[Rfam]
RNA: Small nucleolar RNA Z278
RNA sequence: GCCCAUGAGGAUAUAAUCCAUGUAUUUGAGUUGUAGUGGAGCCAAGUCCCUGUUUUUACAGGAUGAACCUACUUGGCUAAGCUAUAUGCAUAAGAUAUUUUCGGAUUUUCUGAGGC
Numbered sequence: 001g002c003c004c005a006u007g008a009g010g011a012u013a014u015a016a017u018c019c020a021u022g023u024a025u026u027u028g029a030g031u032u033g034u035a036g037u038g039g040a041g042c043c044a045a046g047u048c049c050c051u052g053u054u055u056u057u058a059c060a061g062g063a064u065g066a067a068c069c070u071a072c073u074u075g076g077c078u079a080a081g082c083u084a085u086a087u088g089c090a091u092a093a094g095a096u097a098u099u100u101u102c103g104g105a106u107u108u109u110c111u112g113a114g115g116c
Stems, first nucleotide, its partner, number of pairs: 001116003049062004